[Rfam]
This 73-nucleotide RNA from Rudaeicoccus suwonensis belongs to the Rfam family "Fluoride riboswitch aptamer (crcB RNA motif)". The base pairs follow the family's consensus structure, which is taken from published work.
RNA sequence: AUUUACCCCGGCGAUGGAUCUCGCCGGGCUCAUCGAGCCGAACCGCCGCAUGGCUGAUAGGUCCUGCUCCCAC
Numbered sequence: 001a002u003u004u005a006c007c008c009c010g011g012c013g014a015u016g017g018a019u020c021u022c023g024c025c026g027g028g029c030u031c032a033u034c035g036a037g038c039c040g041a042a043c044c045g046c047c048g049c050a051u052g053g054c055u056g057a058u059a060g061g062u063c064c065u066g067c068u069c070c071c072a073c
Base pairs, nucleotide, nucleotide: 010025011024012023013022016064017063018062019061020060021059045054046053047052